[Rfam]
RNA: Small nucleolar RNA SNORA64/SNORA10 family
RNA sequence: ACUCUCUCAUUCUGCAUAGUUGCACUAGGUCUCAUCCGUGUGACUUUCGUACAGGGAGAGAGAGAAAAGAGCUCCUUAGGACCAUGGAUUGGCCUCACAGUGGCCACUCUUGCCUAGAAGGGCACAACAGGC
Numbered sequence: 001a002c003u004c005u006c007u008c009a010u011u012c013u014g015c016a017u018a019g020u021u022g023c024a025c026u027a028g029g030u031c032u033c034a035u036c037c038g039u040g041u042g043a044c045u046u047u048c049g050u051a052c053a054g055g056g057a058g059a060g061a062g063a064g065a066a067a068a069g070a071g072c073u074c075c076u077u078a079g080g081a082c083c084a085u086g087g088a089u090u091g092g093c094c095u096c097a098c099a100g101u102g103g104c105c106a107c108u109c110u111u112g113c114c115u116a117g118a119a120g121g122g123c124a125c126a127a128c129a130g131g132c
Stems, first nucleotide, its partner, number of pairs: 002064007010056005018045008072122003076118001079115002086110003090106005